The family of this 265-nucleotide RNA sequence from Erysipelotrichaceae bacterium RD49 is "HNH endonuclease-associated RNA and ORF (HEARO) RNA".
Lineage of the source: Bacteria > Bacillota > Erysipelotrichia > Erysipelotrichales > Erysipelotrichaceae.
For this family Rfam cites "Exceptional structured noncoding RNAs revealed by bacterial metagenome analysis" (Weinberg et al., Nature, 2009).

RNA sequence: GUCAAUGACCCCACCUAAAUCACUACGUGAUUCUGGAUGGGGCUUGAAGGAAGAAACCUCAAAACUUCUUUUUCAAGCCUGAUUGACUAGCCUAAGUCUUAAUUGACUCCGUGAUUUGAGAAUCAACCUUAAACAAGUUGAAAUAGGCACUCUGGAACAUUCAGCCUAAUUCCGGACUCUGCGGACCUGUAUGAAACAGUACUGAGGUCAGGUGCAGUGUGCAGAUCGACAAACCUCUUAUCACAUUGGCGAAGGCUGAUGUUUC
Numbered sequence: 001g002u003c004a005a006u007g008a009c010c011c012c013a014c015c016u017a018a019a020u021c022a023c024u025a026c027g028u029g030a031u032u033c034u035g036g037a038u039g040g041g042g043c044u045u046g047a048a049g050g051a052a053g054a055a056a057c058c059u060c061a062a063a064a065c066u067u068c069u070u071u072u073u074c075a076a077g078c079c080u081g082a083u084u085g086a087c088u089a090g091c092c093u094a095a096g097u098c099u100u101a102a103u104u105g106a107c108u109c110c111g112u113g114a115u116u117u118g119a120g121a122a123u124c125a126a127c128c129u130u131a132a133a134c135a136a137g138u139u140g141a142a143a144u145a146g147g148c149a150c151u152c153u154g155g156a157a158c159a160u161u162c163a164g165c166c167u168a169a170u171u172c173c174g175g176a177c178u179c180u181g182c183g184g185a186c187c188u189g190u191a192u193g194a195a196a197c198a199g200u201a202c203u204g205a206g207g208u209c210a211g212g213u214g215c216a217g218u219g220u221g222c223a224g225a226u227c228g229a230c231a232a233a234c235c236u237c238u239u240a241u242c243a244c245a246u247u248g249g250c251g252a253a254g255g256c257u258g259a260u261g262u263u264u265c
Stems, first nucleotide, its partner, number of pairs: 001087006008080001010042002012039002014036002043077009090250003094246001095108004111244005118237003147182002151176007161259004166255002184227002187224006196218002199215004203210002